RNA sequence: UGAAAGUGCGUCUAGGGUUCCGUCCUGUUUGUUUUUUUCAGGAGCUGGUCCGAGCGGCGCAGGCGUGUUUUUUUUCAGAACACGCUACACCUUGGGGAGAAAAGCCCGGAAGGA
Numbered sequence: 001u002g003a004a005a006g007u008g009c010g011u012c013u014a015g016g017g018u019u020c021c022g023u024c025c026u027g028u029u030u031g032u033u034u035u036u037u038u039c040a041g042g043a044g045c046u047g048g049u050c051c052g053a054g055c056g057g058c059g060c061a062g063g064c065g066u067g068u069u070u071u072u073u074u075u076c077a078g079a080a081c082a083c084g085c086u087a088c089a090c091c092u093u094g095g096g097g098a099g100a101a102a103a104g105c106c107c108g109g110a111a112g113g114a
Stems, first nucleotide, its partner, number of pairs: 007061006015051002020048002022045001023043005062086008088109001090112001095107003
Rfam assigns this 114-nucleotide RNA sequence from Tumebacillus flagellatus to the family "Guanidine-I riboswitch aptamer". The organism belongs to Tumebacillus, within Bacteria. On this family, see Nelson et al., Mol Cell 2017: "Metabolism of Free Guanidine in Bacteria Is Regulated by a Widespread Riboswitch Class".